[Rfam]
RNA sequence: ACUGGAAAUAGUAGCGUAUUUCUGUAAGCCAAGUGGUAGUCUAUAAGGAGCUGAAUCCAUUCGUUGGUGGAAUCACGGUUGCUUGGUUGUCUCGUCGAAGACAGUGUCUUGCAGAGUUUGGUGUCAACAUUCGGGUCCGGGCGUAAGCUUGGAUUGGUAGGUUGUUCAAUACUGGGGAAACGCCCGAGGGUAGCAAUACAGCAGGGAAAACUCAGAGCACUAAUACGGCUGUCAAGAUGGCACGUCGGAGGGAAUUUAUCAAGUAGCUGCCAUCAACAGUGGGAACUACCUCUUUU
Numbered sequence: 001a002c003u004g005g006a007a008a009u010a011g012u013a014g015c016g017u018a019u020u021u022c023u024g025u026a027a028g029c030c031a032a033g034u035g036g037u038a039g040u041c042u043a044u045a046a047g048g049a050g051c052u053g054a055a056u057c058c059a060u061u062c063g064u065u066g067g068u069g070g071a072a073u074c075a076c077g078g079u080u081g082c083u084u085g086g087u088u089g090u091c092u093c094g095u096c097g098a099a100g101a102c103a104g105u106g107u108c109u110u111g112c113a114g115a116g117u118u119u120g121g122u123g124u125c126a127a128c129a130u131u132c133g134g135g136u137c138c139g140g141g142c143g144u145a146a147g148c149u150u151g152g153a154u155u156g157g158u159a160g161g162u163u164g165u166u167c168a169a170u171a172c173u174g175g176g177g178a179a180a181c182g183c184c185c186g187a188g189g190g191u192a193g194c195a196a197u198a199c200a201g202c203a204g205g206g207a208a209a210a211c212u213c214a215g216a217g218c219a220c221u222a223a224u225a226c227g228g229c230u231g232u233c234a235a236g237a238u239g240g241c242a243c244g245u246c247g248g249a250g251g252g253a254a255u256u257u258a259u260c261a262a263g264u265a266g267c268u269g270c271c272a273u274c275a276a277c278a279g280u281g282g283g284a285a286c287u288a289c290c291u292c293u294u295u296u
Stems, first nucleotide, its partner, number of pairs: 001040003004023007028037003045296004050291001055287001060282002063277008076269012090253004095248001100246003104243004108236002111232004116226002118223007125164004130159001132157001134155009165171001172215005183206003190199003
Rfam assigns this 296-nucleotide RNA from Circinella minor to the family "Metazoan signal recognition particle RNA".
The family is grouped with related families in Rfam's "SRP clan".
Gene Ontology terms of the family: SRP-dependent cotranslational protein targeting to membrane, signal sequence recognition and signal recognition particle, endoplasmic reticulum targeting.
Pairs were carried over by alignment from the consensus structure, which is taken from published work.